Notes:
A member of the RNA family "Plant signal recognition particle RNA" from Leersia perrieri, 313 nucleotides long. A search with the family's covariance model found it, with a score of 216 bits. A reference for the family is Wild et al. (2002), "Towards the structure of the mammalian signal recognition particle", Curr Opin Struct Biol. The family's RNA type in Rfam is non-coding RNA gene. Lineage of the source: Eukaryota > Euphyllophyta > Magnoliopsida > Poales > Leersia.
Nucleotides: 313
Stems, first nucleotide, its partner, number of pairs: 001041003004023006028038004045313010056303001059300002062297001064295001066293003070289002073287009084272009094263003099259001106257007114246002117244005123237004128233001130231003133172001135170007143162003149156002175180001182227005191220001193218003200211003
Number, partner (000 for none) and nucleotide at each position: 001041g002040c003039c004023g005022a006021g007020c008019u009018c010000a011000g012000u013000a014000g015000c016000a017000g018009g019008a020007g021006c022005u023004u024000g025000u026000a027000a028038c029037c030036c031035a032000a033000g034000c035031u036030g037029g038028g039003g040002g041001c042000a043000u044000u045313a046312a047311g048310g049309g050308u051307g052306g053305u054304g055000c056303g057000a058000a059300u060299g061000g062297u063000u064295u065000g066293g067292g068291g069000c070289g071288g072000a073287a074286u075285a076284u077283g078282g079281g080280c081279u082000u083000u084272g085271g086270g087269c088268u089267c090266a091265u092264g093000u094263g095262u096261g097000g098000a099259a100000c101000u102000u103000u104000u105000c106257u107256g108255g109254c110253c111252u112251g113000c114246c115245c116000g117244u118243u119242c120241c121240a122000a123237g124236u125235u126234g127000c128233g129000u130231a131230g132229u133172g134000g135170u136169u137168g138167g139166a140165g141164g142000a143162g144161u145160c146000u147000u148000a149156g150155c151000g152000a153000a154000a155150g156149c157000a158000u159000u160145g161144g162143c163000c164141u165140c166139u167138c168137u169136g170135g171000g172133c173000u174000u175180c176000u177000a178000a179000a180175g181000c182227g183226g184225c185224a186223g187000g188000c189000a190000u191220a192000g193218c194217g195216u196000u197000a198000g199000g200211c201210u202209g203000g204000u205000u206000u207000c208000a209202c210201a211200g212000a213000g214000c215000a216195g217194c218193g219000a220191u221000c222000a223186c224185u225184g226183c227182c228000c229132g230131c231130u232000u233128c234126c235125a236124a237123c238000g239000g240121u241120g242119g243118a244117a245115g246114g247000a248000u249000a250000a251112c252111a253110g254109g255108c256107c257106g258000c259099u260000g261096c262095a263094c264092c265091a266090u267089g268088g269087g270086c271085c272084c273000g274000c275000u276000u277000c278000u279081g280080g281079u282078c283077c284076a285075u286074a287073u288071u289070c290000c291068c292067u293066c294000u295064a296000u297062a298000a299060c300059a301000g302000a303056c304054c305053a306052c307051c308050a309049u310048u311047u312046u313045u